[Rfam]
RNA sequence: GUUCGCUCUCCAGCUCCAUGCUAGACGUAGAAAAAGUCAGUGUGGCGUUACAAAGAGCGGAAAUUAAAGUGUUGUUUAAAACAGUUGAUUUCUCCAUGUGGAGUAUUGACCACCUAGACUUUCACACAUUU
Numbered sequence: 001g002u003u004c005g006c007u008c009u010c011c012a013g014c015u016c017c018a019u020g021c022u023a024g025a026c027g028u029a030g031a032a033a034a035a036g037u038c039a040g041u042g043u044g045g046c047g048u049u050a051c052a053a054a055g056a057g058c059g060g061a062a063a064u065u066a067a068a069g070u071g072u073u074g075u076u077u078a079a080a081a082c083a084g085u086u087g088a089u090u091u092c093u094c095c096a097u098g099u100g101g102a103g104u105a106u107u108g109a110c111c112a113c114c115u116a117g118a119c120u121u122u123c124a125c126a127c128a129u130u131u
Stems, first nucleotide, its partner, number of pairs: 003060006012049003016045006025037002084110004089105001091103001093102003
RNA: Nematode snoRNA ceN36-1
Organism: Caenorhabditis angaria